[Rfam]
RNA sequence: GUGCCCAAAGCCCCUUAUCAUUCUCCUGUCCGGUGUAGAAUUGUUAGACGACUGGACGGAGAACUGAUAAGGGCCCGAGGGUCA
Numbered sequence: 001g002u003g004c005c006c007a008a009a010g011c012c013c014c015u016u017a018u019c020a021u022u023c024u025c026c027u028g029u030c031c032g033g034u035g036u037a038g039a040a041u042u043g044u045u046a047g048a049c050g051a052c053u054g055g056a057c058g059g060a061g062a063a064c065u066g067a068u069a070a071g072g073g074c075c076c077g078a079g080g081g082u083c084a
Stems, first nucleotide, its partner, number of pairs: 012073009021063006029055002